[Rfam]
Nucleotides: 076
Base pairs, nucleotide, nucleotide: 001076002075003074004071005070006042007041009039010038011037012036018033019032020031021030022029043069044068048064049063050062051061052059
Number, partner (000 for none) and nucleotide at each position: 001076c002075g003074c004071c005070u006042g007041g008000a009039u010038g011037g012036c013000g014000g015000c016000g017000g018033g019032c020031a021030u022029g023000a024000c025000c026000u027000c028000g029022c030021g031020u032019g033018c034000g035000c036012g037011u038010c039009g040000a041007c042006c043069g044068g045000a046000a047000g048064c049063c050062c051061a052059c053000a054000u055000c056000c057000a058000c059052g060000c061051u062050g063049g064048g065000u066000a067000g068044c069043c070005g071004g072000g073000g074003g075002c076001g